[Rfam]
Nucleotides: 079
Stems, first nucleotide, its partner, number of pairs: 003052001005050008015040001017067005024037004057073004
Number, partner (000 for none) and nucleotide at each position: 001000a002000g003052c004000a005050u006049g007048u008047u009046a010045u011044a012043u013000g014000a015040c016000u017067g018066a019065c020064g021063g022000a023000a024037g025036u026035g027034g028000a029000g030000u031000a032000u033000a034027c035026c036025a037024c038000a039000u040015g041000a042000a043012g044011u045010a046009u047008a048007a049006c050005g051000a052003g053000a054000a055000g056000a057073u058072g059071c060070c061000g062000a063021c064020c065019g066018u067017c068000u069000g070060g071059g072058c073057g074000a075000u076000u077000u078000a079000g